[Rfam]
RNA sequence: ACAGCUCGAAAGCCGCGAGGCUCACACCGCACAAGAUGUCUUGCACGUCUAUCUCUAUCGUGAGCGGGCUAAGGUCUGAGUAUGCAUUGUCCUCCUCGUUGAGCCCUAGCAGAGCUUGGCUUUAAUGGGCCGAACGACGUACCAGAAAUGCGCCGCGGGACUGCUUGCGAACCAACGACCUCGAACAUGGCUCAGAAGCCGUCGACGAGAGAGGGAGCACGUUCUUAGGCUUGGCACGCGUCGUGAGGACUGGGUACGUAUGUUGUUUCUCCCAUGUCAUCACCGUCUCUCAUACCUUGCUUUGCUAUCGCGUCGACGCUUGGGCGCGAGUGUAUACUUCGCCGGUAAGCCAAGGAUGUGACCAUGAUUCUGCCUGUCUUACCUAUCAAUGGGAACCCUCGCAAUUGAGCAUCGUGCGCGUGACUUUUGCUGCCCGCAAAUCGUUACGGUCGGACAUUGUGCUCGACUCUGGCUCGAGAUCGAAUAGACUGAUCUUGAGUCAGAGGUGGCGUAUGAGGCAGACUUCUAGGUGUGGAGACGGUGUGCUGGGGGUGCGCGCCCUUGAGUUCACUUCGCGGCUCAUGGUUAGAUCCUUCACCACAGGGUGUGGAGUCAUCAUGAAACUCGAUUCAGACUACUCUUGGGCUGU
Numbered sequence: 001a002c003a004g005c006u007c008g009a010a011a012g013c014c015g016c017g018a019g020g021c022u023c024a025c026a027c028c029g030c031a032c033a034a035g036a037u038g039u040c041u042u043g044c045a046c047g048u049c050u051a052u053c054u055c056u057a058u059c060g061u062g063a064g065c066g067g068g069c070u071a072a073g074g075u076c077u078g079a080g081u082a083u084g085c086a087u088u089g090u091c092c093u094c095c096u097c098g099u100u101g102a103g104c105c106c107u108a109g110c111a112g113a114g115c116u117u118g119g120c121u122u123u124a125a126u127g128g129g130c131c132g133a134a135c136g137a138c139g140u141a142c143c144a145g146a147a148a149u150g151c152g153c154c155g156c157g158g159g160a161c162u163g164c165u166u167g168c169g170a171a172c173c174a175a176c177g178a179c180c181u182c183g184a185a186c187a188u189g190g191c192u193c194a195g196a197a198g199c200c201g202u203c204g205a206c207g208a209g210a211g212a213g214g215g216a217g218c219a220c221g222u223u224c225u226u227a228g229g230c231u232u233g234g235c236a237c238g239c240g241u242c243g244u245g246a247g248g249a250c251u252g253g254g255u256a257c258g259u260a261u262g263u264u265g266u267u268u269c270u271c272c273c274a275u276g277u278c279a280u281c282a283c284c285g286u287c288u289c290u291c292a293u294a295c296c297u298u299g300c301u302u303u304g305c306u307a308u309c310g311c312g313u314c315g316a317c318g319c320u321u322g323g324g325c326g327c328g329a330g331u332g333u334a335u336a337c338u339u340c341g342c343c344g345g346u347a348a349g350c351c352a353a354g355g356a357u358g359u360g361a362c363c364a365u366g367a368u369u370c371u372g373c374c375u376g377u378c379u380u381a382c383c384u385a386u387c388a389a390u391g392g393g394a395a396c397c398c399u400c401g402c403a404a405u406u407g408a409g410c411a412u413c414g415u416g417c418g419c420g421u422g423a424c425u426u427u428u429g430c431u432g433c434c435c436g437c438a439a440a441u442c443g444u445u446a447c448g449g450u451c452g453g454a455c456a457u458u459g460u461g462c463u464c465g466a467c468u469c470u471g472g473c474u475c476g477a478g479a480u481c482g483a484a485u486a487g488a489c490u491g492a493u494c495u496u497g498a499g500u501c502a503g504a505g506g507u508g509g510c511g512u513a514u515g516a517g518g519c520a521g522a523c524u525u526c527u528a529g530g531u532g533u534g535g536a537g538a539c540g541g542u543g544u545g546c547u548g549g550g551g552g553u554g555c556g557c558g559c560c561c562u563u564g565a566g567u568u569c570a571c572u573u574c575g576c577g578g579c580u581c582a583u584g585g586u587u588a589g590a591u592c593c594u595u596c597a598c599c600a601c602a603g604g605g606u607g608u609g610g611a612g613u614c615a616u617c618a619u620g621a622a623a624c625u626c627g628a629u630u631c632a633g634a635c636u637a638c639u640c641u642u643g644g645g646c647u648g649u
Base pairs, nucleotide, nucleotide: 001649002648003647004646007643008642009641012579013578014577015576016575017574018573020065021064022063023062024061034050035049036048037047038046039045076633077632078631079630080629089250090249091248092247102116103115104114106112117132118131119130120129121128122127134244135243136242137241138240139239140238152230153229154228580621581620582619583618584617585616586615